Rfam assigns this 56-nucleotide RNA from Nocardioides sp. to the family "L17-Actino-Proteobacteria ribosomal protein leader". A reference for the family is Eckert and Weinberg (2020), "Discovery of 20 novel ribosomal leader candidates in bacteria and archaea", BMC Microbiol. Lineage of the source: Bacteria > Bacillati > Actinomycetes > Propionibacteriales > Nocardioides. The match comes from Rfam's covariance-model search (43 bits).
RNA sequence: GCGGCCGACGCCCGUCGGUCGCGCAUAGGAAUCCGGUACCUGGUACGGCCGGACGA
Numbered sequence: 001g002c003g004g005c006c007g008a009c010g011c012c013c014g015u016c017g018g019u020c021g022c023g024c025a026u027a028g029g030a031a032u033c034c035g036g037u038a039c040c041u042g043g044u045a046c047g048g049c050c051g052g053a054c055g056a
Base pairs, nucleotide, nucleotide: 001022002021003020004019005018006017007016008015009014026056028054032053033052034051035050036049037048
Dot-bracket structure: (((((((((....)))))))))...(.(...((((((..........))))))).)